[Rfam]
RNA sequence: CAGGGUAGCCUUUGACCCUCCUUAGUUCAAACAAAUGAACUAGUUUUUAAAAAAGUUGUGUCAUUUUAAAAUUUUAGUUCAUUUGGUUGAACUAAGGAGGGUCAAAGGUACCCUG
Number, nucleotide and partner (000 for none) at each position: 001c000002a114003g113004g112005g111006u110007a109008g000009c108010c107011u106012u105013u104014g103015a102016c101017c100018c099019u098020c097021c096022u095023u094024a093025g092026u091027u090028c089029a088030a087031a000032c085033a084034a083035a082036u081037g080038a079039a078040c077041u076042a075043g074044u000045u000046u000047u000048u000049a000050a000051a000052a000053a000054a000055g000056u000057u000058g000059u000060g000061u000062c000063a000064u000065u000066u000067u000068a000069a000070a000071a000072u000073u000074u043075u042076a041077g040078u039079u038080c037081a036082u035083u034084u033085g032086g000087u030088u029089g028090a027091a026092c025093u024094a023095a022096g021097g020098a019099g018100g017101g016102u015103c014104a013105a012106a011107g010108g009109u007110a006111c005112c004113c003114u002115g000